[Rfam]
RNA: Small nucleolar RNA snR43
RNA sequence: CACUCCUAUUUCUGCCCUGAAUCCAUCCUCAUUGGAUUAUAGGUUCUGGUGAUGGAGAAGAAUAAGCCUGUCAACGGCCCUGGCGAAUUUUGUAACCUCGCCUUGUCUUUUGGCAGGAUCGUGGGGAUUGGUUGUUCUAGAAGACUUUGCCGUUUUUCUGUGGAGUCGAGUGGCCGCCCCUACAUUA
Numbered sequence: 001c002a003c004u005c006c007u008a009u010u011u012c013u014g015c016c017c018u019g020a021a022u023c024c025a026u027c028c029u030c031a032u033u034g035g036a037u038u039a040u041a042g043g044u045u046c047u048g049g050u051g052a053u054g055g056a057g058a059a060g061a062a063u064a065a066g067c068c069u070g071u072c073a074a075c076g077g078c079c080c081u082g083g084c085g086a087a088u089u090u091u092g093u094a095a096c097c098u099c100g101c102c103u104u105g106u107c108u109u110u111u112g113g114c115a116g117g118a119u120c121g122u123g124g125g126g127a128u129u130g131g132u133u134g135u136u137c138u139a140g141a142a143g144a145c146u147u148u149g150c151c152g153u154u155u156u157u158c159u160g161u162g163g164a165g166u167c168g169a170g171u172g173g174c175c176g177c178c179c180c181u182a183c184a185u186u187a
Stems, first nucleotide, its partner, number of pairs: 003057004016043004020038006067117008076108002079105001082102005123180004129176005143167005150160001152159001